[Rfam]
RNA sequence: CUUCGACUUUAACAGGGAAGUUCUUUCUGCUACUUUUGAAAAGUAAGUGCUUCCUUGUUUUAGUAGAAG
Numbered sequence: 001c002u003u004c005g006a007c008u009u010u011a012a013c014a015g016g017g018a019a020g021u022u023c024u025u026u027c028u029g030c031u032a033c034u035u036u037u038g039a040a041a042a043g044u045a046a047g048u049g050c051u052u053c054c055u056u057g058u059u060u061u062a063g064u065a066g067a068a069g
Stems, first nucleotide, its partner, number of pairs: 001069003006064003011059011023047003027043002